The family of this 259-nucleotide part of an RNA from Theileria parva is "Eukaryotic large subunit ribosomal RNA". NCBI's taxonomy places the organism under Eukaryota, Alveolata, Aconoidasida, Theileriidae, Theileria. Rfam's curators put it in the seed alignment.

RNA sequence: CAAUUGGGACGUACGCUUCCACUGGGUGCCACAGUCCUGUCCCGGAUAAUUAUCCUGGCAUGGUCUGAGUAAUCCCUUUGGUUCAGCCAGCGUGCAUUGGGGUGUCGCUAAACACAGUCGUGCCAUCUCUAGUGUGACUAGCAGAUUCCAGACUCUACAGCCUCUCCCCGAUGUAAAUACCCUAUUACAUUUGGGUAUGCUCCGACUGGAGCCUCGCUGUCUGGAGUACAUGUUCCAACUGACUCGUCUUGAAACACGA
Numbered sequence: 001c002a003a004u005u006g007g008g009a010c011g012u013a014c015g016c017u018u019c020c021a022c023u024g025g026g027u028g029c030c031a032c033a034g035u036c037c038u039g040u041c042c043c044g045g046a047u048a049a050u051u052a053u054c055c056u057g058g059c060a061u062g063g064u065c066u067g068a069g070u071a072a073u074c075c076c077u078u079u080g081g082u083u084c085a086g087c088c089a090g091c092g093u094g095c096a097u098u099g100g101g102g103u104g105u106c107g108c109u110a111a112a113c114a115c116a117g118u119c120g121u122g123c124c125a126u127c128u129c130u131a132g133u134g135u136g137a138c139u140a141g142c143a144g145a146u147u148c149c150a151g152a153c154u155c156u157a158c159a160g161c162c163u164c165u166c167c168c169c170g171a172u173g174u175a176a177a178u179a180c181c182c183u184a185u186u187a188c189a190u191u192u193g194g195g196u197a198u199g200c201u202c203c204g205a206c207u208g209g210a211g212c213c214u215c216g217c218u219g220u221c222u223g224g225a226g227u228a229c230a231u232g233u234u235c236c237a238a239c240u241g242a243c244u245c246g247u248c249u250u251g252a253a254a255c256a257c258g259a
Base pairs, nucleotide, nucleotide: 001241002240004238005237006236007235008234009233010232011231012230017081020080021079024076025075026074085222086221088219089218090217091216244259245258246257247256
Record summary: On this family, see Cannone et al., BMC Bioinformatics 2002: "The comparative RNA web (CRW) site: an online database of comparative sequence and structure information for ribosomal, intron, and other RNAs". Rfam 15.1 lists 107,465 matches to the family in 2,616 species.